[Rfam]
RNA sequence: CCUUCGGAGCGUCAACCAAACGAGAGUAGCUUCGGCGAAAUCGGACGCGAUGAACAAGGAA
Numbered sequence: 001c002c003u004u005c006g007g008a009g010c011g012u013c014a015a016c017c018a019a020a021c022g023a024g025a026g027u028a029g030c031u032u033c034g035g036c037g038a039a040a041u042c043g044g045a046c047g048c049g050a051u052g053a054a055c056a057a058g059g060a061a
Base pairs, nucleotide, nucleotide: 001059002058003057004056009048010047011046012045013044021043022042023041029036030035
The record is a 61-nucleotide RNA from Geobacillus kaustophilus, which matches "RAGATH-18 RNA" in Rfam. Rfam describes the family as follows. Actinobacteria, Firmicutes, Fusobacteria, Thermotogae (1 example). Rfam's curators put it in the seed alignment.